The record is a 96-nucleotide sequence from Oceanihabitans sediminis, which matches "SAM-I/IV (S-adenosyl methionine) riboswitch aptamer" in Rfam. Its Rfam clan is "SAM clan". Gene Ontology terms of the family: S-adenosylmethionine metabolic process and regulation of gene expression. A reference for the family is Weinberg et al. (2008), "The aptamer core of SAM-IV riboswitches mimics the ligand-binding site of SAM-I riboswitches", RNA. Rfam 15.1 lists 567 matches to the family in 508 species. The source organism's lineage runs through Bacteria, Bacteroidota, Flavobacteriales, Flavobacteriaceae and Oceanihabitans.
[Rfam]
RNA sequence: CUAAAUUAUCAAGAAUCUCAAAAGGAGAUAGCAACCUGCAUAACGAGCAAGGUGCUAAAACGAUAAGCCAAAUACUUUGGAAAAAACGUUAAGCAU
Numbered sequence: 001c002u003a004a005a006u007u008a009u010c011a012a013g014a015a016u017c018u019c020a021a022a023a024g025g026a027g028a029u030a031g032c033a034a035c036c037u038g039c040a041u042a043a044c045g046a047g048c049a050a051g052g053u054g055c056u057a058a059a060a061c062g063a064u065a066a067g068c069c070a071a072a073u074a075c076u077u078u079g080g081a082a083a084a085a086a087c088g089u090u091a092a093g094c095a096u
Stems, first nucleotide, its partner, number of pairs: 006066005015029005030056003035052003038048002045089001068080004